[Rfam]
RNA sequence: AUUUAAAUACAUCUUAUGUUAAUGUUCAUA
Numbered sequence: 001a002u003u004u005a006a007a008u009a010c011a012u013c014u015u016a017u018g019u020u021a022a023u024g025u026u027c028a029u030a
Stems, first nucleotide, its partner, number of pairs: 009019004
About this RNA: CRISPR RNA direct repeat element: a 30-nucleotide sequence from Clostridium acidisoli. Pairs were carried over by alignment from the consensus structure, which was predicted with WAR. Rfam links the family to the GO term defense response. NCBI's taxonomy places the organism under Bacteria, Bacillati, Clostridia, Clostridiaceae, Clostridium acidisoli. The family has 20 seed sequences and 1,947 matches in Rfam 15.1.